RNA sequence: AUAUAAGCAAAAUUCACUUUUCAGAUUCAUUCAUUUAAUGAUGUAUGUGGUUCAUAAUAUAGAUCACAUACAUCAUCAGAUGAAUGAACCUAAAAAGUCAAUUUUGCUUAUAU
Numbered sequence: 001a002u003a004u005a006a007g008c009a010a011a012a013u014u015c016a017c018u019u020u021u022c023a024g025a026u027u028c029a030u031u032c033a034u035u036u037a038a039u040g041a042u043g044u045a046u047g048u049g050g051u052u053c054a055u056a057a058u059a060u061a062g063a064u065c066a067c068a069u070a071c072a073u074c075a076u077c078a079g080a081u082g083a084a085u086g087a088a089c090c091u092a093a094a095a096a097g098u099c100a101a102u103u104u105u106g107c108u109u110a111u112a113u
Base pairs, nucleotide, nucleotide: 002112003111004110005109006108007107008106009105010104011103012102014100016098017097018096019095020094021093023091024090026088027087028086029085030084031083032082033081034080035079036078038076039075040074041073042072043071048066049065050064051063
Dot-bracket structure: .(((((((((((.(.((((((.((.(((((((((((.((((((....((((...........))))....)))))).))))))))))).)).)))))).).))))))))))).